[Rfam]
RNA sequence: GUUGCUUCAUAAUGGUGAACUCCUUCAACCAUAGUGAAGGAUGUUUCAAGUUUCCGGGGUAUACAUCAAUAAUAUUGUUACUAGGAUUAAACAGCAUUGUGCAUUCAUGUAUAUUGCACCUUGUUACCUGUCUCCUGGUAUAUUU
Dot-bracket structure: ..((((((.......((((((((((...........))))).)).))).......))))))..................(((((((......(((...(((...............)))...))).......)))))))......
The record is a 145-nucleotide RNA sequence from Aquilegia coerulea, which matches "small nucleolar RNA snoR137" in Rfam. A reference for the family is Chen and Wu (2009), "Mining small RNA sequencing data: a new approach to identify small nucleolar RNAs in Arabidopsis", Nucleic Acids Res. The organism belongs to Aquilegia, within Eukaryota. The base pairs follow the family's consensus structure, which was predicted with RNAalifold. Rfam classes the family as an H/ACA-box small nucleolar RNA.